[Rfam]
RNA: Group II catalytic intron D1-D4-3
Organism: Sulfobacillus acidophilus
RNA sequence: UCCGCCGUGAGGUGGAAUCCGAAGGAAGCCGGCGGCAAACCUCCGGCCGGACGAACCGGAAGUGCAUCCGAGGCGGGGCGCGCGGGGUGAGUUCGCUCGACGGAACGAAGCCCCAUACGGUCAAGCGCGCGUCACGUCAAUGCACCCGGUAGAUGGAGGGACAGGGCACGCU
Numbered sequence: 001u002c003c004g005c006c007g008u009g010a011g012g013u014g015g016a017a018u019c020c021g022a023a024g025g026a027a028g029c030c031g032g033c034g035g036c037a038a039a040c041c042u043c044c045g046g047c048c049g050g051a052c053g054a055a056c057c058g059g060a061a062g063u064g065c066a067u068c069c070g071a072g073g074c075g076g077g078g079c080g081c082g083c084g085g086g087g088u089g090a091g092u093u094c095g096c097u098c099g100a101c102g103g104a105a106c107g108a109a110g111c112c113c114c115a116u117a118c119g120g121u122c123a124a125g126c127g128c129g130c131g132u133c134a135c136g137u138c139a140a141u142g143c144a145c146c147c148g149g150u151a152g153a154u155g156g157a158g159g160g161a162c163a164g165g166g167c168a169c170g171c172u
Base pairs, nucleotide, nucleotide: 001016002015003014004013005012006011028172030170031169036164040159041158042157043156044155045154046150047149048148049147050146062145063144064143065142066141067140073137074136075135077133078132079131080130081129082128083127085113086112087111088110091106092105093104094103